[Rfam]
RNA sequence: AGCACUCAUUUCAAGCUGCACGGGCACCAACGAGUUGCUCUGCGGUCGGGUGACGUGCGAGAA
Dot-bracket structure: .((((((((.....((((((.(((((.........)))))))))))...)))).)))).....
Numbered sequence: 001a002g003c004a005c006u007c008a009u010u011u012c013a014a015g016c017u018g019c020a021c022g023g024g025c026a027c028c029a030a031c032g033a034g035u036u037g038c039u040c041u042g043c044g045g046u047c048g049g050g051u052g053a054c055g056u057g058c059g060a061g062a063a
Stems, first nucleotide, its partner, number of pairs: 002058004006053004015046006022040005
Shown here is a 63-nucleotide sequence from Trypanosoma conorhini, a member of the family "Trypanosomatid snoRNA TB10Cs1H2".
A reference for the family is Myslyuk et al. (2008), "Psiscan: a computational approach to identify H/ACA-like and AGA-like non-coding RNA in trypanosomatid genomes", BMC Bioinformatics.
The family has 5 seed sequences and 35 matches in Rfam 15.1.
Rfam links the family to the GO terms RNA processing and nucleolus.